Source information: A member of the RNA family "c-di-AMP riboswitch aptamer (ydaO/yuaA leader)" from Streptomyces alboniger, 187 nucleotides long.
[Rfam]
RNA sequence: UCGCUUAUAGCGCCGUAGGCAGGAGCGGGGGACCCAAGGUAAGCGCCGGGUCCGGACGCCGGCUUCCGAGAGGGAGCGGGACGUACGGGACCGGCUAGGGGUGAAGUCGCACUCGGGAGAGUGCGACCGGGCAACUUCACUGGCCCGAACCCGACAGCUCACCUCGCAGGCGUCGGUGAGGGGAUCA
Numbered sequence: 001u002c003g004c005u006u007a008u009a010g011c012g013c014c015g016u017a018g019g020c021a022g023g024a025g026c027g028g029g030g031g032a033c034c035c036a037a038g039g040u041a042a043g044c045g046c047c048g049g050g051u052c053c054g055g056a057c058g059c060c061g062g063c064u065u066c067c068g069a070g071a072g073g074g075a076g077c078g079g080g081a082c083g084u085a086c087g088g089g090a091c092c093g094g095c096u097a098g099g100g101g102u103g104a105a106g107u108c109g110c111a112c113u114c115g116g117g118a119g120a121g122u123g124c125g126a127c128c129g130g131g132c133a134a135c136u137u138c139a140c141u142g143g144c145c146c147g148a149a150c151c152c153g154a155c156a157g158c159u160c161a162c163c164u165c166g167c168a169g170g171c172g173u174c175g176g177u178g179a180g181g182g183g184a185u186c187a
Stems, first nucleotide, its partner, number of pairs: 002172004011022001025167006035098001099152003107126008129146004
The match comes from Rfam's covariance-model search (69 bits). The source organism's lineage runs through Bacteria, Bacillati, Actinomycetota, Kitasatosporales and Streptomyces.